[Rfam]
RNA: rpsB sRNA
Organism: Gellertiella hungarica
RNA sequence: CACACGCGGGGUUGGGGAUGUCAGGGAGAAAUCCUGAUGUUUCCGCCGGUGGUCCGGUCCGGAAGGGCAGGACUGUUCACCCCGUGGAGGUUCAACCGGAAAAAGGAGUUAG
Numbered sequence: 001c002a003c004a005c006g007c008g009g010g011g012u013u014g015g016g017g018a019u020g021u022c023a024g025g026g027a028g029a030a031a032u033c034c035u036g037a038u039g040u041u042u043c044c045g046c047c048g049g050u051g052g053u054c055c056g057g058u059c060c061g062g063a064a065g066g067g068c069a070g071g072a073c074u075g076u077u078c079a080c081c082c083c084g085u086g087g088a089g090g091u092u093c094a095a096c097c098g099g100a101a102a103a104a105g106g107a108g109u110u111a112g
Stems, first nucleotide, its partner, number of pairs: 001089001003087001005086007015044002023035002026033001051074005